RNA sequence: CGGGGGUGCUGCAGGCUCCCCGCUGACAGUGCUGCUGUCCAAGGUCUGC
Numbered sequence: 001c002g003g004g005g006g007u008g009c010u011g012c013a014g015g016c017u018c019c020c021c022g023c024u025g026a027c028a029g030u031g032c033u034g035c036u037g038u039c040c041a042a043g044g045u046c047u048g049c
Stems, first nucleotide, its partner, number of pairs: 001022006011049005025039005